[Rfam]
Rfam assigns this 142-nucleotide sequence from Bucco capensis to the family "Small nucleolar RNA SNORA12". Rfam's curators write: U108 belongs to the H/ACA family of snoRNAs. The family's RNA type in Rfam is H/ACA-box small nucleolar RNA. The organism belongs to Bucco, within Eukaryota. A search with the family's covariance model found it, with a score of 69 bits.
RNA sequence: UCUUGUGGUGGUUUCUCUACUUGGCAGAUCUGUAACUGUGUCAGAGUUGCCUUAAACUACCACAGAGAUCAGAAAGGAGAAAGCUGUGCUGAGAACUUCUUGAAGCUUUUAGUUUUCAGCAUUUUGUUCAGCUCCUACAGCA
Number, nucleotide and partner (000 for none) at each position: 001u000002c000003u000004u000005g063006u062007g061008g060009u059010g058011g057012u000013u000014u000015c000016u000017c000018u000019a000020c000021u000022u000023g051024g050025c049026a000027g047028a000029u045030c044031u043032g042033u000034a000035a000036c000037u000038g000039u000040g000041u000042c032043a031044g030045a029046g000047u027048u000049g025050c024051c023052u000053u000054a000055a000056a000057c011058u010059a009060c008061c007062a006063c005064a000065g000066a000067g000068a000069u000070c000071a000072g000073a000074a000075a000076g135077g134078a133079g132080a000081a000082a000083g000084c000085u000086g000087u000088g000089c000090u000091g000092a000093g000094a000095a000096c000097u000098u000099c000100u000101u000102g000103a127104a124105g123106c000107u000108u000109u000110u000111a000112g000113u000114u000115u000116u000117c000118a000119g000120c000121a000122u000123u105124u104125u000126g000127u103128u000129c000130a000131g000132c079133u078134c077135c076136u000137a000138c000139a000140g000141c000142a000